[Rfam]
RNA sequence: GGUUCCCGGCAGGUUGGGAUCAGCCGCAAUGUUCUACCGUAAUGAAAUAUUGCACUUGUCCCGGCCUGUCGAGAGCCC
Number, nucleotide and partner (000 for none) at each position: 001g000002g000003u000004u074005c073006c000007c000008g000009g069010c068011a067012g066013g065014u064015u000016g062017g061018g060019a059020u058021c000022a056023g055024c000025c000026g053027c052028a051029a050030u049031g048032u047033u046034c000035u000036a000037c000038c000039g000040u000041a000042a000043u000044g000045a000046a033047a032048u031049a030050u029051u028052g027053c026054a000055c023056u022057u000058g020059u019060c018061c017062c016063g000064g014065c013066c012067u011068g010069u009070c000071g000072a000073g005074a004075g000076c000077c000078c000
Source information
The record is a 78-nucleotide RNA from Silurus meridionalis, which matches "mir-92 microRNA precursor family" in Rfam. The family's consensus secondary structure was predicted with PFOLD. The literature on the family includes a 2002 paper in Genes Dev by Mourelatos et al., "miRNPs: a novel class of ribonucleoproteins containing numerous microRNAs". This family represents the microRNA precursor mir-92. Human miR-92 has two predicted hairpin precursor sequences: mir-92-1 on chromosome 13 and mir-92-2 on chromosome X. miR-92 has also been cloned from mouse embryonic stem cells. The mature sequence is excised from the 3' arm of the hairpin. The family is grouped with related families in Rfam's "mir-92 microRNA precursor clan". The organism belongs to Silurus, within Eukaryota.